The record is a 188-nucleotide RNA from Halalkalibacter oceani, which matches "Lysine riboswitch aptamer" in Rfam.
RNA sequence: AGUGAUGGUAGAGGAGCGAAAACCAUCAGUACCACUCUAAGGUUUAUGAGGACCGAUGAGGAGAUUGGGAAAGGGGAAUUCGCCGAAGUGUAGAAAAGGCUCAUGUUUUUCUAUGCUGGACCUAUGUUGAAGAAGCAUAGGGCUGUCACAUAUCAAACCCAAAGGAUAUGUGGAGAACUAUCUCACGC
Numbered sequence: 001a002g003u004g005a006u007g008g009u010a011g012a013g014g015a016g017c018g019a020a021a022a023c024c025a026u027c028a029g030u031a032c033c034a035c036u037c038u039a040a041g042g043u044u045u046a047u048g049a050g051g052a053c054c055g056a057u058g059a060g061g062a063g064a065u066u067g068g069g070a071a072a073g074g075g076g077a078a079u080u081c082g083c084c085g086a087a088g089u090g091u092a093g094a095a096a097a098g099g100c101u102c103a104u105g106u107u108u109u110u111c112u113a114u115g116c117u118g119g120a121c122c123u124a125u126g127u128u129g130a131a132g133a134a135g136c137a138u139a140g141g142g143c144u145g146u147c148a149c150a151u152a153u154c155a156a157a158c159c160c161a162a163a164g165g166a167u168a169u170g171u172g173g174a175g176a177a178c179u180a181u182c183u184c185a186c187g188c
Base pairs, nucleotide, nucleotide: 007182008181009180010179011178016083017082018081019080020079023076024075032068033067034066035063036062037061038060087117088116089115090114091113092112093111094110095109096108097107098106118144119143121141122140123139124138125137126136127135128134146173147172148171149170150169151168152167153166154165
Dot-bracket structure: ......(((((....(((((..((.......(((((((.....................))))..)))......))..)))))...((((((((((((.......))))))))))))((.((((((((.....)))))))).)).(((((((((..........)))))))))....)))))......